[Rfam]
A member of the RNA family "Mammalian CPEB3 ribozyme" from Alligator mississippiensis, 79 nucleotides long.
RNA sequence: AGUGGAUUCAAGUUCGAGGCCAUGGCAGAAGUACCCAUGGCAUGGCCUGUCAUAUUCCAACAAAUCUGCAAAUUCUGCU
Numbered sequence: 001a002g003u004g005g006a007u008u009c010a011a012g013u014u015c016g017a018g019g020c021c022a023u024g025g026c027a028g029a030a031g032u033a034c035c036c037a038u039g040g041c042a043u044g045g046c047c048u049g050u051c052a053u054a055u056u057c058c059a060a061c062a063a064a065u066c067u068g069c070a071a072a073u074u075c076u077g078c079u
Stems, first nucleotide, its partner, number of pairs: 018047004024079007031043002051068002054065003